RNA sequence: CAAGGAUAUGUAGUGAUAUAUGUCCGGUUCAUCAGAAGUCAGCCGGGGCCAUAGUACCUUUUAUUUUAAGGGAAGGGC
Numbered sequence: 001c002a003a004g005g006a007u008a009u010g011u012a013g014u015g016a017u018a019u020a021u022g023u024c025c026g027g028u029u030c031a032u033c034a035g036a037a038g039u040c041a042g043c044c045g046g047g048g049c050c051a052u053a054g055u056a057c058c059u060u061u062u063a064u065u066u067u068a069a070g071g072g073a074a075g076g077g078c
Stems, first nucleotide, its partner, number of pairs: 001026001005024008039046002048078003057071004

The family of this 78-nucleotide RNA from Pedobacter hartonius is "Group II catalytic intron D1-D4-1". Rfam's curators write: Group II introns are found in rRNA, tRNA and mRNA of organelles in fungi, plants and protists, and also in mRNA in bacteria. The pairing is the family consensus, mapped onto this sequence. The source organism's lineage runs through Bacteria, Bacteroidota, Sphingobacteriales, Sphingobacteriaceae and Pedobacter.